[Rfam]
Overview:
A member of the RNA family "Yersinia sRNA 251" from Tatumella ptyseos, 194 nucleotides long. The organism belongs to Tatumella ptyseos, within Bacteria.
RNA sequence: UAUAGGCCUCUAAAGUCCGCUGGCACAGCUCUGAACGGACGCAAUCCUGUUUAUCGAAACGGAUCAAGCCGACCAGCUCAUCUUCCUCAAAGCGCUGUAAUGCAUCCGCCAGGCCGGAUGUGACUCCCCGGGGUAAAUCACACUGGGUAAUAUCGCCGUUGACGAUAACAGUGACAUUUUCGCCCAGGCGGGUC
Numbered sequence: 001u002a003u004a005g006g007c008c009u010c011u012a013a014a015g016u017c018c019g020c021u022g023g024c025a026c027a028g029c030u031c032u033g034a035a036c037g038g039a040c041g042c043a044a045u046c047c048u049g050u051u052u053a054u055c056g057a058a059a060c061g062g063a064u065c066a067a068g069c070c071g072a073c074c075a076g077c078u079c080a081u082c083u084u085c086c087u088c089a090a091a092g093c094g095c096u097g098u099a100a101u102g103c104a105u106c107c108g109c110c111a112g113g114c115c116g117g118a119u120g121u122g123a124c125u126c127c128c129c130g131g132g133g134u135a136a137a138u139c140a141c142a143c144u145g146g147g148u149a150a151u152a153u154c155g156c157c158g159u160u161g162a163c164g165a166u167a168a169c170a171g172u173g174a175c176a177u178u179u180u181c182g183c184c185c186a187g188g189c190g191g192g193u194c
Stems, first nucleotide, its partner, number of pairs: 002054006015040005061078002064075001083112002087108001093102002113193003117189001119188001121186002126133002137166003144158003171183004